[Rfam]
Overview
Shown here is a 134-nucleotide sequence from Equus caballus, a member of the family "Small nucleolar RNA SNORA64/SNORA10 family". A reference for the family is Narayanan et al. (1999), "Nucleolar localization signals of box H/ACA small nucleolar RNAs", EMBO J. This family belongs to the H/ACA class of small nucleolar RNAs (snoRNAs) which act as guides in the the modification of uridines to pseudouridines. This family includes the human snoRNAs U64 and ACA10 and mouse MBI-29. The family has 9 seed sequences and 703 matches in Rfam 15.1. The family is grouped with related families in Rfam's "SNORA64 clan".
RNA sequence: ACUCUCUCAGCUCUGCAUGGUUACACUUGUUUGCACGCGUGUGACUUUCGUAAUGGGGAGAGAGAGAAAGGAUCUCCUCGGGAUCUCAGAUUGGCCUUGUGGUGGCCUCUCUUUCCUUGAGGGGCGCGACAGGC
Numbered sequence: 001a002c003u004c005u006c007u008c009a010g011c012u013c014u015g016c017a018u019g020g021u022u023a024c025a026c027u028u029g030u031u032u033g034c035a036c037g038c039g040u041g042u043g044a045c046u047u048u049c050g051u052a053a054u055g056g057g058g059a060g061a062g063a064g065a066g067a068a069a070g071g072a073u074c075u076c077c078u079c080g081g082g083a084u085c086u087c088a089g090a091u092u093g094g095c096c097u098u099g100u101g102g103u104g105g106c107c108u109c110u111c112u113u114u115c116c117u118u119g120a121g122g123g124g125c126g127c128g129a130c131a132g133g134c
Base pairs, nucleotide, nucleotide: 002066003065004064005063006062007061008060011058012057013056014055015054019046020045021044022043023042024041025040026039074124075123076122077121078120080118081117082116088112089111090110093107094106095105096104